Description
The record is a 262-nucleotide RNA from Clostridium sp. AM58-1XD, which matches "Bacterial large signal recognition particle RNA" in Rfam. The literature on the family includes a 2003 paper in Nucleic Acids Res by Rosenblad et al., "SRPDB: Signal Recognition Particle Database". It is annotated as a non-coding RNA gene. The signal recognition particle (SRP) is a universally conserved ribonucleoprotein involved in the co-translational targeting of proteins to membranes. A search with the family's covariance model found it, with a score of 189 bits. Gene Ontology terms of the family: signal recognition particle, plasma membrane targeting and SRP-dependent cotranslational protein targeting to membrane, signal sequence recognition.
RNA sequence: CCGUGCAGCCGGGGAGAUAGCGGUGCCCUGUACCUGCAAUCCGCUCCAGCAGGGGUGAUGUCCCGCCUCGGGCAUGUUAUUGUGGAGCUGCCUUUUGUAAGUGGCGUUGAAGUCUGGGUCUUGCGCAACAGAAAUUCAUGAACCGUGUCAGGGCAGGAAUGCAGCAGCACUAAGUGAAACCUUUUGUGUGCCGUAAGGUCGCCUGGGCCGAGUUAACUGCAGGAGUAACGUCUGUGAUAAGUGUACAAAGCGGGACGCACGG
Numbered sequence: 001c002c003g004u005g006c007a008g009c010c011g012g013g014g015a016g017a018u019a020g021c022g023g024u025g026c027c028c029u030g031u032a033c034c035u036g037c038a039a040u041c042c043g044c045u046c047c048a049g050c051a052g053g054g055g056u057g058a059u060g061u062c063c064c065g066c067c068u069c070g071g072g073c074a075u076g077u078u079a080u081u082g083u084g085g086a087g088c089u090g091c092c093u094u095u096u097g098u099a100a101g102u103g104g105c106g107u108u109g110a111a112g113u114c115u116g117g118g119u120c121u122u123g124c125g126c127a128a129c130a131g132a133a134a135u136u137c138a139u140g141a142a143c144c145g146u147g148u149c150a151g152g153g154c155a156g157g158a159a160u161g162c163a164g165c166a167g168c169a170c171u172a173a174g175u176g177a178a179a180c181c182u183u184u185u186g187u188g189u190g191c192c193g194u195a196a197g198g199u200c201g202c203c204u205g206g207g208c209c210g211a212g213u214u215a216a217c218u219g220c221a222g223g224a225g226u227a228a229c230g231u232c233u234g235u236g237a238u239a240a241g242u243g244u245a246c247a248a249a250g251c252g253g254g255a256c257g258c259a260c261g262g
Stems, first nucleotide, its partner, number of pairs: 001262006008056003011029004016024001018022001033053005062254005068248001070246001072244004077240010089227002093224006101217002103214003112208008120197006126188002129186005135178005145170004153162003